[Rfam]
RNA sequence: AGCACUUGUAUAUGUUUUUGCUCAGCUGGUGGACAAAGGCUGGUUACACAGAUGCAAAAAUAAAUCCUCUCUUGCAACCCAGAACUCAUUGUUCAGUAAGAAUUUUGAUACAUACAAAAAGGAAUAUA
Numbered sequence: 001a002g003c004a005c006u007u008g009u010a011u012a013u014g015u016u017u018u019u020g021c022u023c024a025g026c027u028g029g030u031g032g033a034c035a036a037a038g039g040c041u042g043g044u045u046a047c048a049c050a051g052a053u054g055c056a057a058a059a060a061u062a063a064a065u066c067c068u069c070u071c072u073u074g075c076a077a078c079c080c081a082g083a084a085c086u087c088a089u090u091g092u093u094c095a096g097u098a099a100g101a102a103u104u105u106u107g108a109u110a111c112a113u114a115c116a117a118a119a120a121g122g123a124a125u126a127u128a
Stems, first nucleotide, its partner, number of pairs: 002055003006051004011046001014040007026031001064125002067122002070119001072117003080107005086101002089098001

A member of the RNA family "Small nucleolar RNA SNORA40" from Mesocricetus auratus, 128 nucleotides long. The family's consensus secondary structure was predicted with RNAalifold. A reference for the family is Ofengand and Bakin (1997), "Mapping to nucleotide resolution of pseudouridine residues in large subunit ribosomal RNAs from representative eukaryotes, prokaryotes, archaebacteria, mitochondria and chloroplasts", J Mol Biol. It scores 104 bits against the family's covariance model. About the family: The snoRNA ACA 40 belongs to the H/ACA family of snoRNAs and guides the pseudouridylation of 28S rRNA subunit at position U4565. Its family is annotated with nucleolus and RNA processing in the Gene Ontology. Rfam 15.1 lists 2,550 matches to the family in 517 species.